[Rfam]
RNA sequence: CUUUUACGGGCUGUAGUUGCGGAAUGCACGUUGCAUUCCUAUUCCAUGGCAGAUGCGGUCAAAAGGAUCCACGUAAGCGUGUGCCGCAAGGCACCGUGAGCAUGGCGCAUUCUAGAUGUAAGACGCACCGUCCGUUUACCUUAUGCGGCAUACCGUCGCGCGGACGAGAGGGUGAUGGUGAACAGCUCAGCUCCAGUGCGCGAGUGUGGGGGCAAAGACUAGGUCAGCCGUAACAG
Numbered sequence: 001c002u003u004u005u006a007c008g009g010g011c012u013g014u015a016g017u018u019g020c021g022g023a024a025u026g027c028a029c030g031u032u033g034c035a036u037u038c039c040u041a042u043u044c045c046a047u048g049g050c051a052g053a054u055g056c057g058g059u060c061a062a063a064a065g066g067a068u069c070c071a072c073g074u075a076a077g078c079g080u081g082u083g084c085c086g087c088a089a090g091g092c093a094c095c096g097u098g099a100g101c102a103u104g105g106c107g108c109a110u111u112c113u114a115g116a117u118g119u120a121a122g123a124c125g126c127a128c129c130g131u132c133c134g135u136u137u138a139c140c141u142u143a144u145g146c147g148g149c150a151u152a153c154c155g156u157c158g159c160g161c162g163g164a165c166g167a168g169a170g171g172g173u174g175a176u177g178g179u180g181a182a183c184a185g186c187u188c189a190g191c192u193c194c195a196g197u198g199c200g201c202g203a204g205u206g207u208g209g210g211g212g213c214a215a216a217g218a219c220u221a222g223g224u225c226a227g228c229c230g231u232a233a234c235a236g
Stems, first nucleotide, its partner, number of pairs: 001236002004233006011227003014221005046207003049059001052111006068105002076097001079094004103214001124200005129166007170193004178186002
The record is a 236-nucleotide RNA sequence from Denitrobacterium detoxificans, which matches "raiA RNA" in Rfam. The source organism's lineage runs through Bacteria, Actinomycetota, Coriobacteriia, Eggerthellaceae and Denitrobacterium. By type it is a riboswitch.